The family of this 76-nucleotide RNA sequence from Alligator mississippiensis is "Mammalian CPEB3 ribozyme". Taxonomically the source falls in Alligator (Eukaryota, Opisthokonta, Euteleostomi, Archosauria). Its family is annotated with RNA nuclease activity in the Gene Ontology. The family's consensus secondary structure is taken from published work.
RNA sequence: UUUGCAAGUUUGAGGCCAUAGCAGAAGCGCUCAAAGUGCAGCCAUCUCAGAUUCCAAUAAAUCUGCGAACUCUGCU
Numbered sequence: 001u002u003u004g005c006a007a008g009u010u011u012g013a014g015g016c017c018a019u020a021g022c023a024g025a026a027g028c029g030c031u032c033a034a035a036g037u038g039c040a041g042c043c044a045u046c047u048c049a050g051a052u053u054c055c056a057a058u059a060a061a062u063c064u065g066c067g068a069a070c071u072c073u074g075c076u
Stems, first nucleotide, its partner, number of pairs: 014043003020076006027039003048065006